The family of this 135-nucleotide RNA sequence from Chlorocebus sabaeus is "Small nucleolar RNA SNORA75". By type it is an H/ACA-box small nucleolar RNA. About the family: U23 belongs to the H/ACA class of snoRNAs. snoRNAs bind a number of proteins (including dyskerin, Gar1p and Nop10p in the case of the H/ACA class) to form snoRNP complexes. This class are thought to guide the sites of modification of uridines to pseudouridines by forming direct base pairing interactions with substrate RNAs. Targets include ribosomal and spliceosomal RNAs as well as the Trypanosoma spliced leader RNA (SL RNA) as possibly other, still unknown cellular RNAs. Taxonomically the source falls in Chlorocebus (Eukaryota, Craniata, Dipnotetrapodomorpha, Cercopithecinae). The family has 6 seed sequences and 414 matches in Rfam 15.1.

[Rfam]
RNA sequence: GACUUCUCACUGAGUUUCUUUCUGUCUGUUGGUGGAAGCUUAUGGAUUCAUACGAGCAGAGAAAAUUCACAGAACUAGCAUUACUUUUGCCUUCUGUCUUUACAGGAGUAUAUUUGGCUGUUUUGUGAGAUAUUG
Numbered sequence: 001g002a003c004u005u006c007u008c009a010c011u012g013a014g015u016u017u018c019u020u021u022c023u024g025u026c027u028g029u030u031g032g033u034g035g036a037a038g039c040u041u042a043u044g045g046a047u048u049c050a051u052a053c054g055a056g057c058a059g060a061g062a063a064a065a066u067u068c069a070c071a072g073a074a075c076u077a078g079c080a081u082u083a084c085u086u087u088u089g090c091c092u093u094c095u096g097u098c099u100u101u102a103c104a105g106g107a108g109u110a111u112a113u114u115u116g117g118c119u120g121u122u123u124u125g126u127g128a129g130a131u132a133u134u135g
Stems, first nucleotide, its partner, number of pairs: 003059002006056003014051002016046003022038002025035002067128006091108006